[Rfam]
RNA sequence: UCAGGGGCCGCCGAAAACCUGGAACAGAGUAGGCA
Numbered sequence: 001u002c003a004g005g006g007g008c009c010g011c012c013g014a015a016a017a018c019c020u021g022g023a024a025c026a027g028a029g030u031a032g033g034c035a
Stems, first nucleotide, its partner, number of pairs: 002021004010034003